Description
mir-2985 microRNA precursor family: a 69-nucleotide RNA sequence from Denticeps clupeoides. The source organism's lineage runs through Eukaryota, Metazoa, Teleostomi, Neopterygii and Denticeps.
[Rfam]
RNA sequence: GGCAUUAAGGUGGGUGGGAUAAUAUAACAAUCUUCUAUGUUGUUAUAGUAUUCCACCUACCCUGAUGUC
Dot-bracket structure: ..(((((.(((((((((.(((.(((((((((.(...).))))))))).))).))))))))).)))))..
Numbered sequence: 001g002g003c004a005u006u007a008a009g010g011u012g013g014g015u016g017g018g019a020u021a022a023u024a025u026a027a028c029a030a031u032c033u034u035c036u037a038u039g040u041u042g043u044u045a046u047a048g049u050a051u052u053c054c055a056c057c058u059a060c061c062c063u064g065a066u067g068u069c
Stems, first nucleotide, its partner, number of pairs: 003067005009061009019051003023047009033037001

A reference for the family is Gunaratne et al. (2011), "Song exposure regulates known and novel microRNAs in the zebra finch auditory forebrain", BMC Genomics. The family's consensus secondary structure was predicted with RNAalifold. Rfam links the family to the GO terms RISC complex and miRNA-mediated post-transcriptional gene silencing.